[Rfam]
The family of this 108-nucleotide RNA from Pontibacter diazotrophicus is "SAM riboswitch aptamer (S box leader)". A search with the family's covariance model found it, with a score of 85 bits. From the family's description: The SAM riboswitch is found upstream of a number of genes which code for proteins involved in methionine or cysteine biosynthesis in Gram-positive bacteria.

RNA sequence: GAUUUAUAAAGAAGAGUGGAGAGACAGGCUCUGUGAAACUCUAGCAACCUAACUAACGAGGUUAAGGUGCUAAUUCCUGAUUUCGGAACAUCCGGAAGAAUAUAAAUU
Numbered sequence: 001g002a003u004u005u006a007u008a009a010a011g012a013a014g015a016g017u018g019g020a021g022a023g024a025c026a027g028g029c030u031c032u033g034u035g036a037a038a039c040u041c042u043a044g045c046a047a048c049c050u051a052a053c054u055a056a057c058g059a060g061g062u063u064a065a066g067g068u069g070c071u072a073a074u075u076c077c078u079g080a081u082u083u084c085g086g087a088a089c090a091u092c093c094g095g096a097a098g099a100a101u102a103u104a105a106a107u108u
Stems, first nucleotide, its partner, number of pairs: 001108008013042005021031003025079004043071004048067002050064004075100001081097006